[Rfam]
RNA: Purine riboswitch aptamer
Organism: Limosilactobacillus fermentum
RNA sequence: AAUUUAGAAAACGUAAGUGCCUAUAUAAUCGCCGUAAUAUGGUCGGCAAGUCUCUACCUUCAGCCGCAAACUGAAGACUAUAAGCAAAAGUGAGUGGGCU
Numbered sequence: 001a002a003u004u005u006a007g008a009a010a011a012c013g014u015a016a017g018u019g020c021c022u023a024u025a026u027a028a029u030c031g032c033c034g035u036a037a038u039a040u041g042g043u044c045g046g047c048a049a050g051u052c053u054c055u056a057c058c059u060u061c062a063g064c065c066g067c068a069a070a071c072u073g074a075a076g077a078c079u080a081u082a083a084g085c086a087a088a089a090g091u092g093a094g095u096g097g098g099c100u
Base pairs, nucleotide, nucleotide: 018086019085020084022082023081024080025079029049031047032046033045034044058076059075060074061073062072063071